[Rfam]
RNA: mir-1285 microRNA precursor family
Organism: Macaca mulatta
RNA sequence: AUGAAGUCUCACUUUGUUGCUCAGGCUGGUCUUGAACUCUUGGCUUGCAGUGAGCUGCUGAGAUCACGCCACUACACUCCAGCCUGGGCAACAGAGUGAGACUCCAU
Numbered sequence: 001a002u003g004a005a006g007u008c009u010c011a012c013u014u015u016g017u018u019g020c021u022c023a024g025g026c027u028g029g030u031c032u033u034g035a036a037c038u039c040u041u042g043g044c045u046u047g048c049a050g051u052g053a054g055c056u057g058c059u060g061a062g063a064u065c066a067c068g069c070c071a072c073u074a075c076a077c078u079c080c081a082g083c084c085u086g087g088g089c090a091a092c093a094g095a096g097u098g099a100g101a102c103u104c105c106a107u
Stems, first nucleotide, its partner, number of pairs: 007101008019089007032082003